[Rfam]
Rfam assigns this 55-nucleotide RNA from Synechococcus sp. WH 7805 to the family "Glutamine-II riboswitch aptamer". For this family Rfam cites "Structure and ligand binding of the glutamine-II riboswitch" (Huang et al., Nucleic Acids Res, 2019). Gene Ontology term of the family: glutamine binding. NCBI's taxonomy places the organism under Bacteria, Bacillati, Cyanophyceae, Synechococcales, Synechococcus. The base pairs follow the family's consensus structure, which is taken from published work.
RNA sequence: GCACGUUGAGCCGCAAGGCUGCAGUUCGCUCCGCACCAAGCAACGGGGGUGUGGA
Number, nucleotide and partner (000 for none) at each position: 001g000002c000003a000004c045005g044006u043007u042008g041009a000010g019011c018012c017013g000014c000015a000016a000017g012018g011019c010020u000021g000022c000023a000024g000025u000026u000027c000028g000029c000030u055031c054032c053033g052034c051035a050036c048037c047038a000039a000040g000041c008042a007043a006044c005045g004046g000047g037048g036049g000050u035051g034052u033053g032054g031055a030